A member of the RNA family "6S / SsrS RNA" from Pararhizobium polonicum, 160 nucleotides long. Taxonomically the source falls in Pararhizobium (Bacteria, Pseudomonadati, Alphaproteobacteria, Hyphomicrobiales). Rfam describes the family as follows. E. coli 6S RNA was the first non coding RNA to be sequenced, but its function was unknown until recently. It consists of 184 nucleotides that fold into an extended hairpin structure with a large single-stranded internal bulge.
[Rfam]
RNA sequence: UGCGGUCUGCGCUUCCCGACAGGACACCACAAUCCCUGGGGCCAUACUCGAUCCAACGGGAGCUGUCCCUGACCUGGCCCGUGGGCUAGGUCACAUGGCGCCCACCUACGUUUGUAGGCACCCAGGAUCGUAAAAAGUCCAUCGGUUGUGUGGAUCGCAC
Numbered sequence: 001u002g003c004g005g006u007c008u009g010c011g012c013u014u015c016c017c018g019a020c021a022g023g024a025c026a027c028c029a030c031a032a033u034c035c036c037u038g039g040g041g042c043c044a045u046a047c048u049c050g051a052u053c054c055a056a057c058g059g060g061a062g063c064u065g066u067c068c069c070u071g072a073c074c075u076g077g078c079c080c081g082u083g084g085g086c087u088a089g090g091u092c093a094c095a096u097g098g099c100g101c102c103c104a105c106c107u108a109c110g111u112u113u114g115u116a117g118g119c120a121c122c123c124a125g126g127a128u129c130g131u132a133a134a135a136a137g138u139c140c141a142u143c144g145g146u147u148g149u150g151u152g153g154a155u156c157g158c159a160c
Stems, first nucleotide, its partner, number of pairs: 002158011015145001017144003035126002038123003041119003058103003062099005071092009
Dot-bracket structure: .(((((((((((..(.(((...............((.((((((..............(((.(((((....(((((((((....)))))))))..))))).))).............))).))).))...............))))..)))))))))))..

Record summary
By type it is a non-coding RNA gene. The base pairs follow the family's consensus structure, which is taken from published work.